[Rfam]
Nucleotides: 046
Stems, first nucleotide, its partner, number of pairs: 006021006
Number, partner (000 for none) and nucleotide at each position: 001000c002000c003000a004000a005000a006021g007020g008019c009018u010017c011016u012000u013000u014000u015000c016011a017010g018009a019008g020007c021006c022000a023000c024000c025000c026000a027000a028000a029000u030000a031000u032000a033000c034000c035000u036000g037000u038000g039000a040000a041000a042000a043000a044000g045000c046000u